This 354-nucleotide sequence from Arenimonas metalli belongs to the Rfam family "Bacterial RNase P class A".
[Rfam]
RNA sequence: GGAGUCGGCCGAGGCAGUCGCGUCGCAGCAAUGCGCCGAGGAAAGUCCGGGCUCCACAGAGCAGGGUGCCAGGUAACGCCUGGGCGGCGUGAGCCGACGGAAAGUGCAACAGAAAACAAACCGCCGAACGGCCCGCAAGGGUGCGUGGUAAGGGCGAAACGGUGGGGUAAGAGCCCACCGCCCGGGGGGACAACGCCCCGGGGCACGGCAAACCCCACCCGGAGCAAGACCAAAUAGGGGUGCUAUGGCAUGGCUCGUGCCGCACCCGGGUUGGUUGCUUGAGGCCUGCGGCGACGCAGGUCCCAGAGGAAUGACUGUCCACGACAGAACCCGGCUUAAUGGCCGGCUCCGCCA
Numbered sequence: 001g002g003a004g005u006c007g008g009c010c011g012a013g014g015c016a017g018u019c020g021c022g023u024c025g026c027a028g029c030a031a032u033g034c035g036c037c038g039a040g041g042a043a044a045g046u047c048c049g050g051g052c053u054c055c056a057c058a059g060a061g062c063a064g065g066g067u068g069c070c071a072g073g074u075a076a077c078g079c080c081u082g083g084g085c086g087g088c089g090u091g092a093g094c095c096g097a098c099g100g101a102a103a104g105u106g107c108a109a110c111a112g113a114a115a116a117c118a119a120a121c122c123g124c125c126g127a128a129c130g131g132c133c134c135g136c137a138a139g140g141g142u143g144c145g146u147g148g149u150a151a152g153g154g155c156g157a158a159a160c161g162g163u164g165g166g167g168u169a170a171g172a173g174c175c176c177a178c179c180g181c182c183c184g185g186g187g188g189g190a191c192a193a194c195g196c197c198c199c200g201g202g203g204c205a206c207g208g209c210a211a212a213c214c215c216c217a218c219c220c221g222g223a224g225c226a227a228g229a230c231c232a233a234a235u236a237g238g239g240g241u242g243c244u245a246u247g248g249c250a251u252g253g254c255u256c257g258u259g260c261c262g263c264a265c266c267c268g269g270g271u272u273g274g275u276u277g278c279u280u281g282a283g284g285c286c287u288g289c290g291g292c293g294a295c296g297c298a299g300g301u302c303c304c305a306g307a308g309g310a311a312u313g314a315c316u317g318u319c320c321a322c323g324a325c326a327g328a329a330c331c332c333g334g335c336u337u338a339a340u341g342g343c344c345g346g347c348u349c350c351g352c353c354a
Stems, first nucleotide, its partner, number of pairs: 001350010013319007021038002024035004043337003047334005052224004059256004064220005069083005084098001085096004099215002104213002106209002121153002123149003129145002131142004161179006180204001181202005186196001189194001228276004238267006247261005283302008

Record summary
A search with the family's covariance model found it, with a score of 298 bits. NCBI's taxonomy places the organism under Bacteria, Pseudomonadati, Gammaproteobacteria, Lysobacteraceae, Arenimonas metalli.